[Rfam]
RNA: ASpks TB sRNA
Nucleotides: 075
Stems, first nucleotide, its partner, number of pairs: 015025003033069001038065001043060003047056003
Number, partner (000 for none) and nucleotide at each position: 001000u002000u003000u004000g005000a006000c007000g008000g009000a010000g011000c012000c013000g014000a015025g016024c017023c018000a019000c020000a021000g022000g023017g024016g025015c026000c027000g028000g029000u030000c031000g032000g033069c034000g035000u036000c037000g038065c039000g040000g041000u042000c043060c044059u045058g046000a047056c048055c049054g050000u051000a052000g053000g054049u055048g056047g057000c058045c059044a060043g061000c062000a063000g064000g065038g066000c067000c068000u069033g070000g071000g072000c073000c074000u075000c